RNA sequence: GAGGGGGGGCGGGAAGAAAGGAGGCCGUGGUGUCGCAGGUCCUCACUCCUCUCCUCCCGUCUUCUCCCUCC
Numbered sequence: 001g002a003g004g005g006g007g008g009g010c011g012g013g014a015a016g017a018a019a020g021g022a023g024g025c026c027g028u029g030g031u032g033u034c035g036c037a038g039g040u041c042c043u044c045a046c047u048c049c050u051c052u053c054c055u056c057c058c059g060u061c062u063u064c065u066c067c068c069u070c071c
Stems, first nucleotide, its partner, number of pairs: 003066012016053001020051001022050003027046003